[Rfam]
RNA: Small nucleolar RNA snoR145
RNA sequence: UAGCAAAGGCCCCAGUGGAGGGGUAAAAAAGUAAAAAACUCUGGUAACUGAGGCCCCUUCUAACAAUUGAAUGUAAAACCUUUGUAAUUUUGCUUAUUGGGCCGAAUUGUGGGAUGUACCAAUUAUCCUUUGUUUUGGUACUUCUGGAAUCCUUGUCUAUUGAUCC
Number, nucleotide and partner (000 for none) at each position: 001u000002a000003g085004c084005a083006a082007a081008g080009g079010c000011c020012c000013c018014a000015g000016u000017g000018g013019a000020g011021g000022g000023g000024u000025a000026a059027a058028a000029a000030a000031g000032u000033a000034a000035a000036a000037a000038a000039c052040u051041c050042u000043g048044g000045u000046a000047a000048c043049u000050g041051a040052g039053g000054c000055c000056c000057c000058u027059u026060c000061u000062a000063a000064c000065a000066a000067u000068u000069g000070a000071a000072u000073g000074u000075a000076a000077a000078a000079c009080c008081u007082u006083u005084g004085u003086a000087a000088u000089u000090u000091u000092g000093c000094u000095u000096a000097u000098u000099g000100g000101g157102c000103c155104g154105a153106a000107u000108u000109g000110u000111g000112g000113g144114a143115u000116g141117u140118a139119c138120c137121a136122a135123u000124u000125a000126u000127c000128c000129u000130u000131u000132g000133u000134u000135u122136u121137g120138g119139u118140a117141c116142u000143u114144c113145u000146g000147g000148a000149a000150u000151c000152c000153u105154u104155g103156u000157c101158u000159a000160u000161u000162g000163a000164u000165c000166c000